[Rfam]
RNA sequence: UAGUGCUUGAUACUAACUGAGAUAUCUAUAUCCUAGUCCUGUGUCAAAAGCUUCUGAUGUGUUGUGAUAGCUGGGUUUCAGAAGUGCAAUAUUAAAGCAAAAGACAUGAGUCUUUCAAGCCCAGUGUGUAAAGUUGUCCUCUGAGUUAUAACUCAAAGGCACAACU
Numbered sequence: 001u002a003g004u005g006c007u008u009g010a011u012a013c014u015a016a017c018u019g020a021g022a023u024a025u026c027u028a029u030a031u032c033c034u035a036g037u038c039c040u041g042u043g044u045c046a047a048a049a050g051c052u053u054c055u056g057a058u059g060u061g062u063u064g065u066g067a068u069a070g071c072u073g074g075g076u077u078u079c080a081g082a083a084g085u086g087c088a089a090u091a092u093u094a095a096a097g098c099a100a101a102a103g104a105c106a107u108g109a110g111u112c113u114u115u116c117a118a119g120c121c122c123a124g125u126g127u128g129u130a131a132a133g134u135u136g137u138c139c140u141c142u143g144a145g146u147u148a149u150a151a152c153u154c155a156a157a158g159g160c161a162c163a164a165c166u
Base pairs, nucleotide, nucleotide: 003087004086005085006084007083008082015077016076017075018074020072021071023069024068025067026066027061028060029059030058031057032056035052036051037050040047103160105158124139126137127136128135140157142155143154144153145152146151

Small Cajal body specific RNA 1: a 166-nucleotide RNA sequence from Pteropus alecto. Rfam links the family to the GO terms nucleolus, RNA processing and Cajal body. For this family Rfam cites "Cajal body-specific small nuclear RNAs: a novel class of 2'-O-methylation and pseudouridylation guide RNAs" (Darzacq et al., EMBO J, 2002). Rfam classes the family as a small Cajal body RNA. The base pairs follow the family's consensus structure, which was predicted with RNAalifold. Taxonomically the source falls in Pteropus (Eukaryota, Bilateria, Vertebrata, Theria).